[Rfam]
This 269-nucleotide RNA sequence from Nannospalax galili belongs to the Rfam family "Mason-Pfizer monkey virus packaging signal". Rfam 15.1 lists 2,921 matches to the family in 53 species.
RNA sequence: UGGCGCCCAACAUGGGGCUGGAUACUGGGAGCAUCUCGUGAGGGAGAUGACGGAAAAAGGAAGGCGUGCACUCAUUCAAUUUCGAGUAGUUCAGAGACGUGCCACGGACCAAACCGAAGGUAAGUUGUGCCAUCCGAUCAUGGGGCAAGAAUUGAGCCAGCAUCAGAUUUAUGUCAAGCAAUUGAGAGAGGCUCUAAAGACACGAGGAGUAAAGGUUAGGACUGUGGAUUUAUUUCAUUUCUUUGAUUUUGUAAAGGACAUUUGUCCCU
Numbered sequence: 001u002g003g004c005g006c007c008c009a010a011c012a013u014g015g016g017g018c019u020g021g022a023u024a025c026u027g028g029g030a031g032c033a034u035c036u037c038g039u040g041a042g043g044g045a046g047a048u049g050a051c052g053g054a055a056a057a058a059g060g061a062a063g064g065c066g067u068g069c070a071c072u073c074a075u076u077c078a079a080u081u082u083c084g085a086g087u088a089g090u091u092c093a094g095a096g097a098c099g100u101g102c103c104a105c106g107g108a109c110c111a112a113a114c115c116g117a118a119g120g121u122a123a124g125u126u127g128u129g130c131c132a133u134c135c136g137a138u139c140a141u142g143g144g145g146c147a148a149g150a151a152u153u154g155a156g157c158c159a160g161c162a163u164c165a166g167a168u169u170u171a172u173g174u175c176a177a178g179c180a181a182u183u184g185a186g187a188g189a190g191g192c193u194c195u196a197a198a199g200a201c202a203c204g205a206g207g208a209g210u211a212a213a214g215g216u217u218a219g220g221a222c223u224g225u226g227g228a229u230u231u232a233u234u235u236c237a238u239u240u241c242u243u244u245g246a247u248u249u250u251g252u253a254a255a256g257g258a259c260a261u262u263u264g265u266c267c268c269u
Base pairs, nucleotide, nucleotide: 006031007029008028013024014023036050037049038048039047080120081117082116087112089109092106128147129146130145133144134143135142136141153196154195156192157191158190203245204244205243206242207241208240209239213231214230215229216228217227254269256267257266258265259264
By type it is a cis-regulatory element. Its family is annotated with viral genome packaging in the Gene Ontology. Taxonomically the source falls in Nannospalax (Eukaryota, Metazoa, Euteleostomi, Dipnotetrapodomorpha).